[Rfam]
RNA sequence: GGUUGCAAGUUUGAGGCCAUAGCUGAAGUGCUCAUGGUGCAGCCUGUCAGAUAUCAAUGAAUCUGUGAAUUCUGCU
Numbered sequence: 001g002g003u004u005g006c007a008a009g010u011u012u013g014a015g016g017c018c019a020u021a022g023c024u025g026a027a028g029u030g031c032u033c034a035u036g037g038u039g040c041a042g043c044c045u046g047u048c049a050g051a052u053a054u055c056a057a058u059g060a061a062u063c064u065g066u067g068a069a070u071u072c073u074g075c076u
Base pairs, nucleotide, nucleotide: 015044016043017042021076022075023074025072026071027070028040029039030038048065049064050063051062052061054059